Rfam assigns this 98-nucleotide RNA sequence from Sediminivirga luteola to the family "ZMP/ZTP riboswitch aptamer (pfl RNA motif)". NCBI's taxonomy places the organism under Bacteria, Bacillati, Actinomycetota, Brevibacteriaceae, Sediminivirga.
Nucleotides: 098
Base pairs, nucleotide, nucleotide: 005056008053009052010051011050012049015046017086018085019084020083028042029041030040031039076092077091078090079089
Number, partner (000 for none) and nucleotide at each position: 001000c002000u003000c004000u005056g006000c007000a008053g009052u010051c011050g012049u013000g014000a015046c016000u017086g018085g019084c020083g021000u022000u023000u024000u025000a026000a027000g028042g029041u030040g031039g032000g033000a034000c035000a036000c037000a038000a039031c040030c041029a042028c043000c044000g045000u046015g047000g048000a049012g050011c051010g052009a053008c054000a055000c056005c057000c058000c059000u060000u061000u062000g063000u064000g065000c066000a067000g068000a069000c070000c071000c072000g073000c074000u075000c076092g077091g078090c079089c080000g081000u082000u083020c084019g085018c086017c087000u088000g089079g090078g091077c092076c093000c094000c095000g096000c097000g098000c